[Rfam]
Nucleotides: 312
Base pairs, nucleotide, nucleotide: 001312002311003310005308006307007306008305009304010302011301012269013268014267015266016265017264021041022040023039024038025037026036027035028034029033046299047298048297050296051295052294053293054292055203056202057201058200061233064230067199068197070196071085072084073083074082075081086099087098088097089096090095100195101194105191107189108188121179122178123177124174125173126172127171128170129169130168131167142156143155207251208250209249210248216242217241218240220238
Number, partner (000 for none) and nucleotide at each position: 001312g002311a003310g004000a005308g006307g007306a008305g009304a010302a011301g012269g013268c014267c015266a016265g017264c018000u019000u020000u021041c022040g023039c024038g025037g026036c027035u028034u029033u030000u031000u032000a033029g034028a035027g036026g037025u038024c039023g040022u041021g042000a043000g044000g045000a046299a047298a048297g049000u050296c051295c052294c053293c054292c055203c056202a057201c058200c059000u060000c061233c062000g063000a064230a065000c066000a067199u068197g069000g070196g071085a072084u073083g074082u075081c076000g077000a078000g079000a080000u081075g082074g083073c084072a085071u086099a087098a088097g089096g090095c091000g092000a093000g094000a095090g096089c097088c098087u099086u100195g101194g102000c103000c104000c105191u106000g107189g108188u109000a110000c111000a112000g113000a114000a115000a116000c117000g118000a119000c120000a121179c122178g123177g124174c125173u126172u127171g128170u129169u130168u131167u132000g133000a134000g135000c136000u137000a138000u139000g140000a141000u142156u143155u144000g145000a146000u147000u148000g149000g150000g151000a152000g153000u154000c155143g156142a157000u158000g159000a160000g161000c162000g163000a164000u165000g166000a167131g168130g169129a170128a171127c172126a173125a174124g175000a176000a177123u178122c179121g180000a181000u182000g183000g184000a185000a186000c187000g188108a189107c190000g191105a192000a193000a194101c195100c196070c197068c198000u199067a200058g201057g202056u203055g204000c205000a206000a207251g208250u209249c210248c211000a212000a213000a214000c215000c216242g217241g218240g219000u220238u221000a222000u223000g224000g225000g226000u227000u228000g229000u230064u231000c232000g233061g234000c235000c236000c237000u238220a239000u240218c241217c242216c243000a244000g245000g246000u247000a248210g249209g250208a251207u252000g253000c254000u255000a256000a257000g258000a259000u260000g261000a262000a263000u264017g265016c266015u267014g268013g269012c270000a271000u272000u273000g274000g275000a276000u277000u278000u279000u280000c281000c282000a283000a284000g285000a286000a287000c288000a289000g290000a291000a292054g293053g294052g295051g296050g297048c298047u299046u300000a301011c302010u303000c304009u305008c306007u307006c308005c309000a310003c311002u312001c